[Rfam]
A member of the RNA family "Nitrogen stress-induced RNA 1" from Planktothrix tepida, 53 nucleotides long. It scores 42 bits against the family's covariance model.
RNA sequence: GAGUAGAUGCACCCUGAUAGUUCCCCCUCAACUUCGGUUGGGGGAAUUUUUUU
Numbered sequence: 001g002a003g004u005a006g007a008u009g010c011a012c013c014c015u016g017a018u019a020g021u022u023c024c025c026c027c028u029c030a031a032c033u034u035c036g037g038u039u040g041g042g043g044g045a046a047u048u049u050u051u052u053u
Stems, first nucleotide, its partner, number of pairs: 003012002025044008